[Rfam]
Description
The family of this 81-nucleotide RNA from Zingiber officinale is "Small nucleolar RNA Z155". The match comes from Rfam's covariance-model search (45 bits). NCBI's taxonomy places the organism under Eukaryota, Liliopsida, Petrosaviidae, commelinids, Zingiber. The base pairs follow the family's consensus structure. Its family is annotated with nucleolus and RNA processing in the Gene Ontology. Rfam classes the family as a C/D-box small nucleolar RNA.

RNA sequence: CCUCGAUGUGAUGAUUUCUCUUCUCGGAAAUUUUUUCAUGUCGAUCUUACAAUGAAUCAGACUACAACUAUCUGAUCGACG
Numbered sequence: 001c002c003u004c005g006a007u008g009u010g011a012u013g014a015u016u017u018c019u020c021u022u023c024u025c026g027g028a029a030a031u032u033u034u035u036u037c038a039u040g041u042c043g044a045u046c047u048u049a050c051a052a053u054g055a056a057u058c059a060g061a062c063u064a065c066a067a068c069u070a071u072c073u074g075a076u077c078g079a080c081g
Stems, first nucleotide, its partner, number of pairs: 001081001003079004